[Rfam]
RNA sequence: ACAGUCUGAAAAUCACUUGGGGUCUUCUGUGGUCCCUGGUGCAAUAACUGUGCCGAUAACUGUGCCGAUAGCAGAGGGAGCACUAAACUCUUUGCCCACGGUAAAGUGUGGGGAGUGAAACCCAUGUUCCUAUAAUC
Numbered sequence: 001a002c003a004g005u006c007u008g009a010a011a012a013u014c015a016c017u018u019g020g021g022g023u024c025u026u027c028u029g030u031g032g033u034c035c036c037u038g039g040u041g042c043a044a045u046a047a048c049u050g051u052g053c054c055g056a057u058a059a060c061u062g063u064g065c066c067g068a069u070a071g072c073a074g075a076g077g078g079a080g081c082a083c084u085a086a087a088c089u090c091u092u093u094g095c096c097c098a099c100g101g102u103a104a105a106g107u108g109u110g111g112g113g114a115g116u117g118a119a120a121c122c123c124a125u126g127u128u129c130c131u132a133u134a135a136u137c
Stems, first nucleotide, its partner, number of pairs: 006050001008048001010045001014041003021034004077130001079128004089118002092115002097110003
Overview:
The record is a 137-nucleotide sequence from Bucco capensis, which matches "Small nucleolar RNA ACA64" in Rfam. Rfam links the family to the GO terms RNA processing and nucleolus. Taxonomically the source falls in Bucco (Eukaryota, Bilateria, Sauropsida, Neognathae). The base pairs follow the family's consensus structure, which was predicted with WAR. On this family, see Schattner et al., RNA 2006: "A computational screen for mammalian pseudouridylation guide H/ACA RNAs".